[Rfam]
The record is a 152-nucleotide sequence from Rhodamnia argentea, which matches "Small nucleolar RNA snoR136" in Rfam. For this family Rfam cites "Mining small RNA sequencing data: a new approach to identify small nucleolar RNAs in Arabidopsis" (Chen and Wu, Nucleic Acids Res, 2009).
RNA sequence: UUGGCUUCAUGUUGCUGCCGAAGCAAUCAAUGGCUUACACUGAAUGUGGUUGUGUAGGUCAGUUUCCAGAUUGGAGCCGAUAAAAUCGUUCCCCUCGCUAUCCAGUGCUUCAUUAUUGGUGAAGUAAUUUUGGACGUCGGGGAACUACAUCU
Dot-bracket structure: .((((..((..((......((.((...........(..((...........))).......)).)).))..))..))).).......(((((((.((...(((((....(((.......))).......)))))))..))))))).......

A search with the family's covariance model found it, with a score of 78 bits.